[Rfam]
RNA sequence: GCGAAAGUUCCAUGCUUCCUUGCAUUCAAUAGUAUGUUUGUAAAACCCUAUGGAAUGUAAAGAAGUAUGGAGCGAUUGG
Numbered sequence: 001g002c003g004a005a006a007g008u009u010c011c012a013u014g015c016u017u018c019c020u021u022g023c024a025u026u027c028a029a030u031a032g033u034a035u036g037u038u039u040g041u042a043a044a045a046c047c048c049u050a051u052g053g054a055a056u057g058u059a060a061a062g063a064a065g066u067a068u069g070g071a072g073c074g075a076u077u078g079g
Stems, first nucleotide, its partner, number of pairs: 007073012020060006027053001029051003